[Rfam]
RNA sequence: AAGUGGCGUUGACCUAGCCUCUCCUAGGCUUUGUCUGUGUGUUAAAUGUGUUUCAGACAUAGCCUGAUAGAGGUUACGUUUUGUCCCACUU
Number, nucleotide and partner (000 for none) at each position: 001a000002a000003g000004u000005g000006g000007c000008g000009u000010u000011g000012a079013c078014c000015u076016a075017g074018c073019c072020u071021c000022u000023c000024c000025u000026a000027g064028g063029c062030u061031u000032u059033g058034u057035c056036u055037g000038u000039g000040u000041g000042u000043u000044a000045a000046a000047u000048g000049u000050g000051u000052u000053u000054c000055a036056g035057a034058c033059a032060u000061a030062g029063c028064c027065u000066g000067a000068u000069a000070g000071a020072g019073g018074u017075u016076a015077c000078g013079u012080u000081u000082u000083g000084u000085c000086c000087c000088a000089c000090u000091u000
mir-282 microRNA precursor family: a 91-nucleotide RNA sequence from Galleria mellonella. A reference for the family is Li et al. (2009), "Direct sequencing and expression analysis of a large number of miRNAs in Aedes aegypti and a multi-species survey of novel mosquito miRNAs", BMC Genomics. Rfam 15.1 lists 136 matches to the family in 128 species. The family's consensus secondary structure was predicted with RNAalifold. The source organism's lineage runs through Eukaryota, Opisthokonta, Panarthropoda, Galleriinae and Galleria.